[Rfam]
RNA sequence: GCUAUAACUAAUAUUAGAUAGAGCUUACUUUCGCAAAGUGCGAGAGCUGAGGAAUGGUCAUCCUUAGCUAUAUAAUUAAAGGUGAAUGACCUCACCUUAGCCU
Number, nucleotide and partner (000 for none) at each position: 001g024002c023003u022004a000005u020006a019007a000008c000009u000010a000011a000012u000013a000014u000015u000016a000017g000018a000019u006020a005021g000022a003023g002024c001025u000026u000027a000028c000029u045030u044031u043032c042033g041034c040035a000036a000037a000038g000039u000040g034041c033042g032043a031044g030045a029046g068047c067048u066049g065050a064051g063052g062053a061054a000055u000056g000057g000058u000059c000060a000061u053062c052063c051064u050065u049066a048067g047068c046069u000070a000071u000072a000073u000074a000075a000076u000077u000078a000079a098080a097081g096082g095083u094084g093085a000086a000087u000088g000089a000090c000091c000092u000093c084094a083095c082096c081097u080098u079099a000100g000101c000102c000103u000
This 103-nucleotide RNA from Prevotella amnii belongs to the Rfam family "engA RNA". It is one of the family's seed sequences. Lineage of the source: Bacteria > Pseudomonadati > Bacteroidota > Bacteroidales > Prevotella amnii. The family's RNA type in Rfam is cis-regulatory element.